This 63-nucleotide RNA sequence from Pseudomonas sp. BAY1663 belongs to the Rfam family "Pseudomonas sRNA P36".
[Rfam]
RNA sequence: AAGACUGUUACCGCCUGCACAUACGCCGUAACAAAAACCGGGAUCAUCGGUAACGAUGGCCCG
Numbered sequence: 001a002a003g004a005c006u007g008u009u010a011c012c013g014c015c016u017g018c019a020c021a022u023a024c025g026c027c028g029u030a031a032c033a034a035a036a037a038c039c040g041g042g043a044u045c046a047u048c049g050g051u052a053a054c055g056a057u058g059g060c061c062c063g
Stems, first nucleotide, its partner, number of pairs: 006033006013027001039063004044058001047056003
The literature on the family includes a 2006 paper in Nucleic Acids Res by Livny et al., "Identification of 17 Pseudomonas aeruginosa sRNAs and prediction of sRNA-encoding genes in 10 diverse pathogens using the bioinformatic tool sRNAPredict2". It is annotated as a small RNA. The base pairs follow the family's consensus structure, which was predicted with RNAalifold.